Rfam assigns this 75-nucleotide RNA sequence from Canis lupus to the family "Small nucleolar RNA SNORD113/SNORD114 family".
The family has 59 seed sequences and 5,721 matches in Rfam 15.1.
The literature on the family includes a 2002 paper in Hum Mol Genet by Cavaille et al., "Identification of tandemly-repeated C/D snoRNA genes at the imprinted human 14q32 domain reminiscent of those at the Prader-Willi/Angelman syndrome region".
Its Rfam clan is "SNORD74 clan".
The imprinted human domain at 14q32 contains two clusters of tandemly repeated small nucleolar RNAs named 14q(I) and 14q(II) snoRNAs. These two clusters are named SNORD113 and SNORD114 respectively in the HGNC approved gene symbol nomenclature. The snoRNAs found in both clusters are clearly related and are represented here by a single family.
RNA sequence: UGGAUCAGUGAUGAUAACUGCCGGCGUAUGAGUCAUGGAUGAUGAGUAAUAUGUGUCUGAAACUCUGAGGUCCAA
Dot-bracket structure: .(((((..............................................................)))))..